This 85-nucleotide sequence from Heliorestis acidaminivorans belongs to the Rfam family "skipping-rope RNA". By type it is a small RNA. The match comes from Rfam's covariance-model search (68 bits). The organism belongs to Heliorestis, within Bacteria.
RNA sequence: AGCUUUUGAGGUGGGAAAGGUUCCCCACGCGCUUGCCUUUAGGUGAGUCAACAGAGAUGCCGGAUACGCCGCCCGGCCAUUAGCU
Number, nucleotide and partner (000 for none) at each position: 001a085002g084003c083004u082005u000006u000007u079008g078009a000010g000011g028012u027013g026014g025015g024016a000017a000018a000019g070020g069021u068022u000023c000024c015025c014026c013027a012028c011029g000030c054031g048032c047033u046034u045035g044036c043037c042038u000039u000040u000041a000042g037043g036044u035045g034046a033047g032048u031049c000050a000051a000052c000053a000054g030055a000056g000057a000058u000059g077060c076061c075062g074063g073064a000065u000066a000067c000068g021069c020070c019071g000072c000073c063074c062075g061076g060077c059078c008079a007080u000081u000082a004083g003084c002085u001